Shown here is a 257-nucleotide part of an RNA from Candidatus Epulonipiscium viviparus, a member of the family "Bacterial large subunit ribosomal RNA". Rfam's curators put it in the seed alignment. NCBI's taxonomy places the organism under Bacteria, Bacillati, Clostridia, Lachnospiraceae, Candidatus Epulonipiscium. The base pairs follow the family's consensus structure, which is taken from published work.

RNA sequence: GGAAAUUUGAGAGGAGCUGACCUUAGUACGAGAGGACCGGGUUGGACGGACCGCUGGUGCAUCUGUUAGACUACCAAGUCUAUAGCAGAGUAGCCAAGUCUGGAUAUGAUAAACGCUGAAGGCAUCUAAGCGUGAAACAGACCUCAAGAUAAGAUUUCCCAUUCGUAAGAAGUAAGACCCCUUGCAGAUUACAAGGUAGAUAGGUUGGAGGUGUAAGAGUGGUAACAUUCGAGCUGACCAAUACUAAUGGUUCGAGG
Number, nucleotide and partner (000 for none) at each position: 001g159002g158003a157004a156005a155006u154007u153008u152009g000010a000011g145012a144013g143014g142015a000016g000017c045018u044019g043020a042021c041022c040023u039024u000025a000026g000027u000028a000029c000030g000031a000032g000033a000034g000035g000036a000037c000038c000039g023040g022041g021042u020043u019044g018045g017046a000047c102048g101049g100050a099051c098052c000053g000054c000055u096056g095057g094058u000059g000060c000061a000062u089063c088064u087065g086066u085067u082068a081069g080070a079071c078072u077073a000074c000075c000076a000077a072078g071079u070080c069081u068082a067083u000084a000085g066086c065087a064088g063089a062090g000091u000092a000093g000094c057095c056096a055097a000098g051099u050100c049101u048102g047103g000104a000105u000106a000107u139108g138109a000110u000111a000112a000113a133114c132115g131116c130117u129118g000119a000120a000121g000122g000123c000124a000125u000126c000127u000128a000129a117130g116131c115132g114133u113134g000135a000136a000137a000138c108139a107140g000141a000142c014143c013144u012145c011146a000147a000148g000149a000150u000151a000152a008153g007154a006155u005156u004157u003158c002159c001160c000161a000162u171163u170164c169165g000166u000167a000168a000169g164170a163171a162172g000173u255174a000175a000176g253177a252178c000179c250180c196181c195182u194183u193184g192185c000186a000187g000188a000189u000190u000191a000192c184193a183194a182195g181196g180197u000198a000199g000200a000201u246202a245203g244204g242205u241206u240207g239208g238209a000210g235211g234212u000213g000214u000215a000216a000217g230218a229219g228220u227221g226222g000223u000224a000225a000226c221227a220228u219229u218230c217231g000232a000233g000234c211235u210236g000237a000238c208239c207240a206241a205242u204243a000244c203245u202246a201247a000248u000249g000250g179251u000252u177253c176254g000255a173256g000257g000